[Rfam]
RNA sequence: GGUCCUUGGAAAUCAAGCUUGGGUGUGGCCUGCGAUUAUGACGUCAUGGCGACCCAUCCUUGGUUUCUGAGGCUU
Number, nucleotide and partner (000 for none) at each position: 001g000002g074003u000004c072005c071006u070007u069008g000009g067010a066011a065012a064013u063014c062015a000016a060017g059018c000019u000020u000021g055022g054023g053024u052025g000026u000027g000028g050029c049030c048031u000032g000033c000034g000035a000036u000037u000038a000039u000040g000041a000042c000043g000044u000045c000046a000047u000048g030049g029050c028051g000052a024053c023054c022055c021056a000057u000058c000059c017060u016061u000062g014063g013064u012065u011066u010067c009068u000069g007070a006071g005072g004073c000074u002075u000
RNA: mir-551 microRNA precursor family